[Rfam]
RNA sequence: CCGGUAAUAUUCCGUGCGUACUCGCCCUCAAAAGUUGGCUUCCCGCCAGAUCCAAGGCGAGUGGGAAAUUCGGUGGUUUACUCCGUCCCGCCUGUUCUGCGGUUAAGGGAGAAACAGUUUUACGCUGGGGACCCUUUAAGUUCCGCUCCUCUUGAGAGGAUCCUUGGCGUGCAAGCGCCGGGCAGCUCCACAAGAAAUUACUGCCUCUAUCUCCUCACCAAGGGGGAUAAAGGCAAUGGGAGUGUUUUGCGGACGGUUGGCUCAGGUGAAGAGAAAGGCCAAUCUCUUCGUCGGGGCUAUUGAGUGCAAUGCAUGGAUCCCAGUGUUGAUCUCACUGGGAAACCCGAUACCGAUCAUUAUGUUGGCUGG
Numbered sequence: 001c002c003g004g005u006a007a008u009a010u011u012c013c014g015u016g017c018g019u020a021c022u023c024g025c026c027c028u029c030a031a032a033a034g035u036u037g038g039c040u041u042c043c044c045g046c047c048a049g050a051u052c053c054a055a056g057g058c059g060a061g062u063g064g065g066a067a068a069u070u071c072g073g074u075g076g077u078u079u080a081c082u083c084c085g086u087c088c089c090g091c092c093u094g095u096u097c098u099g100c101g102g103u104u105a106a107g108g109g110a111g112a113a114a115c116a117g118u119u120u121u122a123c124g125c126u127g128g129g130g131a132c133c134c135u136u137u138a139a140g141u142u143c144c145g146c147u148c149c150u151c152u153u154g155a156g157a158g159g160a161u162c163c164u165u166g167g168c169g170u171g172c173a174a175g176c177g178c179c180g181g182g183c184a185g186c187u188c189c190a191c192a193a194g195a196a197a198u199u200a201c202u203g204c205c206u207c208u209a210u211c212u213c214c215u216c217a218c219c220a221a222g223g224g225g226g227a228u229a230a231a232g233g234c235a236a237u238g239g240g241a242g243u244g245u246u247u248u249g250c251g252g253a254c255g256g257u258u259g260g261c262u263c264a265g266g267u268g269a270a271g272a273g274a275a276a277g278g279c280c281a282a283u284c285u286c287u288u289c290g291u292c293g294g295g296g297c298u299a300u301u302g303a304g305u306g307c308a309a310u311g312c313a314u315g316g317a318u319c320c321c322a323g324u325g326u327u328g329a330u331c332u333c334a335c336u337g338g339g340a341a342a343c344c345c346g347a348u349a350c351c352g353a354u355c356a357u358u359a360u361g362u363u364g365g366c367u368g369g
Base pairs, nucleotide, nucleotide: 001369002368003367004366007362008361009360013316020062021061022060023059024058035049036048037047038046039045071352072351073350074349075348085254086253087252088251147160148159149158150157151156165180166179167178168177169176170175182250183249184248185247188244202235203234204233318340319339320338321337322336323335324334

Rfam assigns this 369-nucleotide RNA from Pichia californica to the family "Nuclear RNase P". Lineage of the source: Eukaryota > Fungi > saccharomyceta > Pichiaceae > Pichia. Rfam describes the family as follows. Ribonuclease P (RNase P) is a ubiquitous endoribonuclease, found in archaea, bacteria and eukarya as well as chloroplasts and mitochondria. Its best characterised activity is the generation of mature 5'-ends of tRNAs by cleaving the 5'-leader elements of precursor-tRNAs. The family's consensus secondary structure is taken from published work. It is annotated as a ribozyme. It scores 59 bits against the family's covariance model.